[Rfam]
RNA sequence: CCAGAACAAAGGAAAACCUGUCUGAAAAGCAGGGGCUCAAAGUCACGGGUCUAAGGUACAAGAGACUAGGACAGCCGGACUGCCUGA
Numbered sequence: 001c002c003a004g005a006a007c008a009a010a011g012g013a014a015a016a017c018c019u020g021u022c023u024g025a026a027a028a029g030c031a032g033g034g035g036c037u038c039a040a041a042g043u044c045a046c047g048g049g050u051c052u053a054a055g056g057u058a059c060a061a062g063a064g065a066c067u068a069g070g071a072c073a074g075c076c077g078g079a080c081u082g083c084c085u086g087a
Stems, first nucleotide, its partner, number of pairs: 012038002017033004022029002041081004046077003049072003056066002

Annotation: A member of the RNA family "c-di-GMP-I riboswitch aptamer" from Paenibacillus sp. J31TS4, 87 nucleotides long. Rfam describes the family as follows. GEMM was predicted in a large-scale screen for bacterial structured RNA regulatory elements. Pairs were carried over by alignment from the consensus structure, which is taken from published work.